[Rfam]
RNA sequence: GGCUGGUCCGAAGGUAGUGAGUUAUCUCAAUUGAUUGUUCACAGUCAAUACAGAUUGAACUCCUUGUUCUACUCUUUCCCCCCUUCUCACUACUGCACUUGACUAGUCUUAA
Numbered sequence: 001g002g003c004u005g006g007u008c009c010g011a012a013g014g015u016a017g018u019g020a021g022u023u024a025u026c027u028c029a030a031u032u033g034a035u036u037g038u039u040c041a042c043a044g045u046c047a048a049u050a051c052a053g054a055u056u057g058a059a060c061u062c063c064u065u066g067u068u069c070u071a072c073u074c075u076u077u078c079c080c081c082c083c084u085u086c087u088c089a090c091u092a093c094u095g096c097a098c099u100u101g102a103c104u105a106g107u108c109u110u111a112a
Base pairs, nucleotide, nucleotide: 001108002107003106004105005104006103007102008101010100011099014096015095016091017090018089019088020087021086
Shown here is a 112-nucleotide sequence from Cavia porcellus, a member of the family "Y RNA".
NCBI's taxonomy places the organism under Eukaryota, Vertebrata, Gnathostomata, Teleostomi, Cavia.
The base pairs follow the family's consensus structure, which is taken from published work.
Rfam classes the family as a non-coding RNA gene.